Description:
Plant signal recognition particle RNA: a 305-nucleotide RNA from Actinidia chinensis. Rfam 15.1 lists 4,988 matches to the family in 266 species. The family's RNA type in Rfam is non-coding RNA gene. A search with the family's covariance model found it, with a score of 235 bits. The family's consensus secondary structure is taken from published work. The source organism's lineage runs through Eukaryota, Viridiplantae, Streptophyta, asterids and Actinidia chinensis.
RNA sequence: GCUGAGCUGGGUAACGCCAGCCUGUUACUCGAGUGAGGGCAUUACUGUGACUGGACUAAGGUCUGGCCCCUUCAGGCAGGCCCAGGGGGAUGCGUCUGCUGGCUUGCCCGGUCCAAGUUGGGAGUUGGGCUGUGUGUCUCGGGCGAAGGCCUGGGCCACGCGGUCUCUAGAGAGGAGGGCACAGCGUGAGGCUGGUUUCACAGAGCAGCGACAACCUCCCUCUCUCGACAGUGGACGGAUCACAAGACGGUGCACCCUUUGGUCCGCAUUGCCUGGGGGGCUGGCCCAAUAGAACAGUCACUUUU
Numbered sequence: 001g002c003u004g005a006g007c008u009g010g011g012u013a014a015c016g017c018c019a020g021c022c023u024g025u026u027a028c029u030c031g032a033g034u035g036a037g038g039g040c041a042u043u044a045c046u047g048u049g050a051c052u053g054g055a056c057u058a059a060g061g062u063c064u065g066g067c068c069c070c071u072u073c074a075g076g077c078a079g080g081c082c083c084a085g086g087g088g089g090a091u092g093c094g095u096c097u098g099c100u101g102g103c104u105u106g107c108c109c110g111g112u113c114c115a116a117g118u119u120g121g122g123a124g125u126u127g128g129g130c131u132g133u134g135u136g137u138c139u140c141g142g143g144c145g146a147a148g149g150c151c152u153g154g155g156c157c158a159c160g161c162g163g164u165c166u167c168u169a170g171a172g173a174g175g176a177g178g179g180c181a182c183a184g185c186g187u188g189a190g191g192c193u194g195g196u197u198u199c200a201c202a203g204a205g206c207a208g209c210g211a212c213a214a215c216c217u218c219c220c221u222c223u224c225u226c227g228a229c230a231g232u233g234g235a236c237g238g239a240u241c242a243c244a245a246g247a248c249g250g251u252g253c254a255c256c257c258u259u260u261g262g263u264c265c266g267c268a269u270u271g272c273c274u275g276g277g278g279g280g281c282u283g284g285c286c287c288a289a290u291a292g293a294a295c296a297g298u299c300a301c302u303u304u305u
Stems, first nucleotide, its partner, number of pairs: 001040003004023001006021005028037003044304001047301007056292002060287001063284005069279010079264004084259003088256001091254004099250003103246004108238002111236005117229008127166010138155007167172001174219005185210003192203003